[Rfam]
RNA: Potassium channel RNA editing signal
RNA sequence: GUCGGGUAUGGAGAUAUGGCGCCCAAGACUUACCUCGGGAUGUUUGUGGGCGCUCUCUGCGCCUUGGCUGGAGUGCUCACUAUCGCGCUGCCCGUUCCCGUGAUAGUAUCCAAC
Numbered sequence: 001g002u003c004g005g006g007u008a009u010g011g012a013g014a015u016a017u018g019g020c021g022c023c024c025a026a027g028a029c030u031u032a033c034c035u036c037g038g039g040a041u042g043u044u045u046g047u048g049g050g051c052g053c054u055c056u057c058u059g060c061g062c063c064u065u066g067g068c069u070g071g072a073g074u075g076c077u078c079a080c081u082a083u084c085g086c087g088c089u090g091c092c093c094g095u096u097c098c099c100g101u102g103a104u105a106g107u108a109u110c111c112a113a114c
Base pairs, nucleotide, nucleotide: 001114002113004111005110007108008107009106011104014101015100018097019096021095022094037077038076040074049063050062051061